[Rfam]
RNA: RNase MRP
RNA sequence: CAACCACGAGACGAAGUGAGUGGGUCAUAGUCGGUGCCUAGAGCGCCACUAGACCCAGGAAAGUCCCCGGGCCCAAAACUGCAGAGAUGCAGGCUCGGAAACGAGUCAUCUUCUUGUCGAAGGAGUUACUUGUACUUGUGCAAGUGGGCUGAGACACGUGUGGAGCCUUUGACCCCUUUGCCGAAGCAAAUUGGCCGAUUUAACACAGUUAUUCACUUUGGUCCCUUGUGGACAUAACUGAACGGGGCUUACGAUCUCGUGGUU
Numbered sequence: 001c002a003a004c005c006a007c008g009a010g011a012c013g014a015a016g017u018g019a020g021u022g023g024g025u026c027a028u029a030g031u032c033g034g035u036g037c038c039u040a041g042a043g044c045g046c047c048a049c050u051a052g053a054c055c056c057a058g059g060a061a062a063g064u065c066c067c068c069g070g071g072c073c074c075a076a077a078a079c080u081g082c083a084g085a086g087a088u089g090c091a092g093g094c095u096c097g098g099a100a101a102c103g104a105g106u107c108a109u110c111u112u113c114u115u116g117u118c119g120a121a122g123g124a125g126u127u128a129c130u131u132g133u134a135c136u137u138g139u140g141c142a143a144g145u146g147g148g149c150u151g152a153g154a155c156a157c158g159u160g161u162g163g164a165g166c167c168u169u170u171g172a173c174c175c176c177u178u179u180g181c182c183g184a185a186g187c188a189a190a191u192u193g194g195c196c197g198a199u200u201u202a203a204c205a206c207a208g209u210u211a212u213u214c215a216c217u218u219u220g221g222u223c224c225c226u227u228g229u230g231g232a233c234a235u236a237a238c239u240g241a242a243c244g245g246g247g248c249u250u251a252c253g254a255u256c257u258c259g260u261g262g263u264u
Base pairs, nucleotide, nucleotide: 002264003263004262005261006260007259008258009257010256011255014218015217016216017215018214019213022056023055024054025053033047034046035045036044037043061250062249063248065247066246067245068244080091081090082089083088092107093106094105095104096103097102130189131188132187136185137184140181141180142178143177144176146168147167148166149165156161221233222232223231224230